[Rfam]
RNA sequence: GAGAACUGAUAUUCCGACAGGUGGAAUGAGGGGGUAACGCCCCGAAACGCCUGCCUUGAUACUCCGACGUGCAAAAGGGCGUGUAAUAGCUGUGCUGUACGAAGCUCGGUGAAGUCGGCAGAGAGCAACCGUAAGCAGAUAAGAUAUUUUGUCUGUACGAAAGCUGUUCAGAGGUGAAUGGUGUUGCCUAUAUGCCGGAGGUCAAUAAA
Numbered sequence: 001g002a003g004a005a006c007u008g009a010u011a012u013u014c015c016g017a018c019a020g021g022u023g024g025a026a027u028g029a030g031g032g033g034g035u036a037a038c039g040c041c042c043c044g045a046a047a048c049g050c051c052u053g054c055c056u057u058g059a060u061a062c063u064c065c066g067a068c069g070u071g072c073a074a075a076a077g078g079g080c081g082u083g084u085a086a087u088a089g090c091u092g093u094g095c096u097g098u099a100c101g102a103a104g105c106u107c108g109g110u111g112a113a114g115u116c117g118g119c120a121g122a123g124a125g126c127a128a129c130c131g132u133a134a135g136c137a138g139a140u141a142a143g144a145u146a147u148u149u150u151g152u153c154u155g156u157a158c159g160a161a162a163g164c165u166g167u168u169c170a171g172a173g174g175u176g177a178a179u180g181g182u183g184u185u186g187c188c189u190a191u192a193u194g195c196c197g198g199a200g201g202u203c204a205a206u207a208a209a
Stems, first nucleotide, its partner, number of pairs: 018053006031043004054201004064109004068101006076093001078091003116197005125187005130159003137154006163182008